SAM riboswitch aptamer (S box leader): a 101-nucleotide RNA sequence from Staphylococcus epidermidis. Pairs were carried over by alignment from the consensus structure, which is taken from published work.
RNA sequence: ACCUUAUUUUGAGAAGCAGAGGGAUUUGGCCCGUAGAAGCUUCAGCAACCGACUUUAAAUAGCACGGUGCUAAUACCAACGAGCAACUCGAAUGAUAAGUA
Numbered sequence: 001a002c003c004u005u006a007u008u009u010u011g012a013g014a015a016g017c018a019g020a021g022g023g024a025u026u027u028g029g030c031c032c033g034u035a036g037a038a039g040c041u042u043c044a045g046c047a048a049c050c051g052a053c054u055u056u057a058a059a060u061a062g063c064a065c066g067g068u069g070c071u072a073a074u075a076c077c078a079a080c081g082a083g084c085a086a087c088u089c090g091a092a093u094g095a096u097a098a099g100u101a
Base pairs, nucleotide, nucleotide: 003099004098005097006096007095008094013043014042015041016040017039021032022031023030026079027078028077029076044071045070046069047068049067050066051063075093080090081089082088083087